Notes: This 69-nucleotide RNA belongs to the Rfam family "Streptococcus sRNA SpF59 (ldcC RNA)". The literature on the family includes a 2012 paper in PLoS Pathog by Mann et al., "Control of virulence by small RNAs in Streptococcus pneumoniae".
RNA sequence: UGACCACUUUCUAAACGGUACUAUAACCUUAGAAAGUCAAGGCAUGCGGACAGCCGGGUCAAAUGCCGA
Numbered sequence: 001u002g003a004c005c006a007c008u009u010u011c012u013a014a015a016c017g018g019u020a021c022u023a024u025a026a027c028c029u030u031a032g033a034a035a036g037u038c039a040a041g042g043c044a045u046g047c048g049g050a051c052a053g054c055c056g057g058g059u060c061a062a063a064u065g066c067c068g069a
Stems, first nucleotide, its partner, number of pairs: 001061005006037009